[Rfam]
RNA sequence: CACACGCUCCUUAGAUCCACCUCUGGGGAGUCUUCCAGCUCUGAGUGUCACAGCUCCAGGGUGGAGGCUCCCAGCAGCUUUUCCGGCUGUGCAGUUGGAGGUGCUUGAGUCAUUGGCGUGUGAGAGCAGUCUACCUGCUCCUUCAGCCCAGUUGCUGCCCUGGCUCCCAUAGUGGCCUUCACCAGGGUAGACAAGCUGGAGGGCGGACAAG
Numbered sequence: 001c002a003c004a005c006g007c008u009c010c011u012u013a014g015a016u017c018c019a020c021c022u023c024u025g026g027g028g029a030g031u032c033u034u035c036c037a038g039c040u041c042u043g044a045g046u047g048u049c050a051c052a053g054c055u056c057c058a059g060g061g062u063g064g065a066g067g068c069u070c071c072c073a074g075c076a077g078c079u080u081u082u083c084c085g086g087c088u089g090u091g092c093a094g095u096u097g098g099a100g101g102u103g104c105u106u107g108a109g110u111c112a113u114u115g116g117c118g119u120g121u122g123a124g125a126g127c128a129g130u131c132u133a134c135c136u137g138c139u140c141c142u143u144c145a146g147c148c149c150a151g152u153u154g155c156u157g158c159c160c161u162g163g164c165u166c167c168c169a170u171a172g173u174g175g176c177c178u179u180c181a182c183c184a185g186g187g188u189a190g191a192c193a194a195g196c197u198g199g200a201g202g203g204c205g206g207a208c209a210a211g
Base pairs, nucleotide, nucleotide: 002121003120004119005118006117007116008115010109011108012107013106014105018103019102020101021100022099023098024097025096026072027071028070029069030068034065035064036063037062040060041059042058043057045056074090075089076088077087078086079085135206136205137204138203139202142200144198145197146196147195155190156189157188158187159186160185161184162183163182167175168174169173
RNA: Small nucleolar RNA SNORA53
Organism: Pangasianodon hypophthalmus